Shown here is a 73-nucleotide RNA sequence from Oncorhynchus mykiss, a member of the family "Small nucleolar RNA SNORD47". The match comes from Rfam's covariance-model search (70 bits).
RNA sequence: AGCCUGUGAUGAAAAGAUUCUGCCAUAUGAGUACACUGAUUAUACUCCUACCGUUCCAUUUAUUUCUGAGGCU
Dot-bracket structure: ((((.................................................................))))